[Rfam]
RNA sequence: UGCCCCAUUCUCAAAGAGAAUAGGCACUGUUGAUCAUGCGAUCCAGAGAUUGUUAAUGGGGCUGCAUUGAGAAACAAGCUAUGUUUCCAUUCACAGCAAACACAUCGCAGUGGUGACAAUGAGACCUGUAACAUUU
Numbered sequence: 001u002g003c004c005c006c007a008u009u010c011u012c013a014a015a016g017a018g019a020a021u022a023g024g025c026a027c028u029g030u031u032g033a034u035c036a037u038g039c040g041a042u043c044c045a046g047a048g049a050u051u052g053u054u055a056a057u058g059g060g061g062c063u064g065c066a067u068u069g070a071g072a073a074a075c076a077a078g079c080u081a082u083g084u085u086u087c088c089a090u091u092c093a094c095a096g097c098a099a100a101c102a103c104a105u106c107g108c109a110g111u112g113g114u115g116a117c118a119a120u121g122a123g124a125c126c127u128g129u130a131a132c133a134u135u136u
Stems, first nucleotide, its partner, number of pairs: 002062003006058003021045001023043002074129003078125001088115003092112003